[Rfam]
The family of this 201-nucleotide RNA from Tenebrionibacter intestinalis is "GcvB RNA". From the family's description: The gcvB gene encodes a small untranslated RNA involved in expression of the dipeptide and oligopeptide transport systems in Escherichia coli. Included several unknown homologues in alignment (Bateman A pers obs). Pairs were carried over by alignment from the consensus structure, which is taken from published work. The literature on the family includes a 2015 paper in EMBO J by Miyakoshi et al., "Cross talk between ABC transporter mRNAs via a target mRNA-derived sponge of the GcvB small RNA". Taxonomically the source falls in Tenebrionibacter (Bacteria, Pseudomonadati, Pseudomonadota, Enterobacteriaceae). Rfam classes the family as a non-coding RNA gene. The match comes from Rfam's covariance-model search (146 bits).
RNA sequence: ACUUCCUGAGCCGGAACGAAAAGUUUUCUGACCUGUCGGAGCUUUUGGCUUACGGUUGUGAUGUUGUGUUGUUGUGUUGUUGUGUUUGCAUUGGGUCUGUCAUUCAGGCCCGGGCAGUUAACUGCCGUUUUCACUUACUGUACAUUUACCCUGUCUGUCCAUAGUGAUUAAUGUAGCACCGCUAAAGCGGUGCUUUUUUUU
Number, nucleotide and partner (000 for none) at each position: 001a000002c000003u000004u000005c000006c000007u000008g000009a050010g049011c048012c047013g000014g000015a046016a045017c000018g000019a000020a000021a044022a043023g042024u041025u040026u039027u000028c038029u000030g036031a000032c000033c000034u000035g000036u030037c000038g028039g026040a025041g024042c023043u022044u021045u016046u015047g012048g011049c010050u009051u000052a000053c000054g000055g000056u000057u000058g000059u000060g000061a000062u000063g000064u000065u000066g000067u000068g000069u000070u000071g000072u000073u000074g000075u000076g000077u000078u000079g000080u000081u000082g000083u000084g000085u000086u000087u000088g000089c000090a000091u000092u000093g111094g110095g109096u108097c107098u106099g105100u000101c000102a000103u000104u000105c099106a098107g097108g096109c095110c094111c093112g000113g126114g125115c124116a123117g122118u000119u000120a000121a000122c117123u116124g115125c114126c113127g000128u000129u000130u000131u000132c000133a000134c000135u000136u000137a000138c000139u000140g000141u000142a174143c173144a172145u171146u170147u000148a000149c000150c000151c000152u000153g000154u000155c000156u000157g000158u000159c000160c000161a000162u000163a000164g000165u000166g000167a000168u000169u000170a146171a145172u144173g143174u142175a194176g193177c192178a191179c190180c189181g188182c187183u000184a000185a000186a000187g182188c181189g180190g179191u178192g177193c176194u175195u000196u000197u000198u000199u000200u000201u000